The record is a 267-nucleotide RNA from Syntrophomonas zehnderi, which matches "Bacterial large signal recognition particle RNA" in Rfam. It is annotated as a non-coding RNA gene. The signal recognition particle (SRP) is a universally conserved ribonucleoprotein involved in the co-translational targeting of proteins to membranes. Taxonomically the source falls in Syntrophomonas zehnderi (Bacteria, Bacillati, Bacillota, Clostridia).

[Rfam]
RNA sequence: CCGUGCUAGAUGGGGAAUUAGCGGUGCCCUGUAACCUGCAACCCGCUACAGCAGGAUUGAAUUCCUGAGCUGAGGGUCUGUUCUUGUAGGGUCUGGCUUGAAUAAGUGGCGGAGAAGUUUGGGUCCUGCGCAACGGGACACCUUGAACCGUGUCAGGUCCGGAAGGAAGCAGCACUAAGAGGUUCAUCGCGUGUGACGGAGGGUUGCCUGAAUGGAGUUAACUGUUCAAGUAACGCCUGGGAGACAGUCUCGAAGCCAGGUGCACGG
Numbered sequence: 001c002c003g004u005g006c007u008a009g010a011u012g013g014g015g016a017a018u019u020a021g022c023g024g025u026g027c028c029c030u031g032u033a034a035c036c037u038g039c040a041a042c043c044c045g046c047u048a049c050a051g052c053a054g055g056a057u058u059g060a061a062u063u064c065c066u067g068a069g070c071u072g073a074g075g076g077u078c079u080g081u082u083c084u085u086g087u088a089g090g091g092u093c094u095g096g097c098u099u100g101a102a103u104a105a106g107u108g109g110c111g112g113a114g115a116a117g118u119u120u121g122g123g124u125c126c127u128g129c130g131c132a133a134c135g136g137g138a139c140a141c142c143u144u145g146a147a148c149c150g151u152g153u154c155a156g157g158u159c160c161g162g163a164a165g166g167a168a169g170c171a172g173c174a175c176u177a178a179g180a181g182g183u184u185c186a187u188c189g190c191g192u193g194u195g196a197c198g199g200a201g202g203g204u205u206g207c208c209u210g211a212a213u214g215g216a217g218u219u220a221a222c223u224g225u226u227c228a229a230g231u232a233a234c235g236c237c238u239g240g241g242a243g244a245c246a247g248u249c250u251c252g253a254a255g256c257c258a259g260g261u262g263c264a265c266g267g
Base pairs, nucleotide, nucleotide: 001267002266003265004264005263006262009058010057011056012030013029014028015027017025018024019023035055036054037053038052039051064260065259066258067257069256070255071254074251075250076249078247082244083243084242085241087239088238089237090236094232095231098229099228100227101226102225103224106222107221108219109218110217117213118212119211120210121209122208123207124206125202126201127200129198130197131193132192134191135190137188138187140183141182142181143180144179150175151174152173153172158167159166160165